[Rfam]
RNA sequence: UACUCCGGGGAGCGCUGCGAGGUCUUGCGACCCCAGGCCCGGUGUCCCAAAACUGCGCUCACCUGAC
Numbered sequence: 001u002a003c004u005c006c007g008g009g010g011a012g013c014g015c016u017g018c019g020a021g022g023u024c025u026u027g028c029g030a031c032c033c034c035a036g037g038c039c040c041g042g043u044g045u046c047c048c049a050a051a052a053c054u055g056c057g058c059u060c061a062c063c064u065g066a067c
Stems, first nucleotide, its partner, number of pairs: 002045002005042004021032004
The family of this 67-nucleotide sequence from Chitinimonas sp. BJB300 is "SAH (S-adenosyl-L-homocysteine) riboswitch aptamer".
On this family, see Wang et al., Mol Cell 2008: "Riboswitches that sense S-adenosylhomocysteine and activate genes involved in coenzyme recycling".
Lineage of the source: Bacteria > Pseudomonadati > Betaproteobacteria > Chitinibacteraceae > Chitinimonas.